RNA sequence: GCGACAUGCCCUCCUUGGGCGUUUCCUCCCUAGACUUUCAAGGCCGCUUCGUGCGGCCUUUUUUUUGGCCAAA
Numbered sequence: 001g002c003g004a005c006a007u008g009c010c011c012u013c014c015u016u017g018g019g020c021g022u023u024u025c026c027u028c029c030c031u032a033g034a035c036u037u038u039c040a041a042g043g044c045c046g047c048u049u050c051g052u053g054c055g056g057c058c059u060u061u062u063u064u065u066u067g068g069c070c071a072a073a
Stems, first nucleotide, its partner, number of pairs: 008020004042058006
This 73-nucleotide sequence from Rhizobiales bacterium PAR1 belongs to the Rfam family "Makes More Granules Regulator RNA (mmgR)". The literature on the family includes a 2005 paper in Genome Biol by Corbino et al., "Evidence for a second class of S-adenosylmethionine riboswitches and other regulatory RNA motifs in alpha-proteobacteria". The base pairs follow the family's consensus structure. The family is grouped with related families in Rfam's "suhB sRNA clan". A search with the family's covariance model found it, with a score of 63 bits. The organism belongs to Hyphomicrobiales, within Bacteria. SuhB later renamed mmgR (makes more granules regulator) was a putative non-coding RNA found multiple times in the Agrobacterium tumefaciens genome and related alpha-proteobacteria. Other non-coding RNAs uncovered in the same analysis include: speF, ybhL, metA, and serC.Several studies inSinorhizobium meliloti showed that suhB element is indeed a non-coding RNA:firstly it was detected on Northern blot and called Sm8RNA, secondly in an RNAseq study referred to as SmelC689.The mutant phenotype's (strain lacking the small RNA) cytoplasm contains higher content of polyhydroxybutyrate (PBH)storage granules than wild type strain. The sRNA is required to limit the PBH intracellular accumulation when the nitrogen-fixing Sinorhizobium meliloti is under condition of surplus carbon in relation to nitrogen.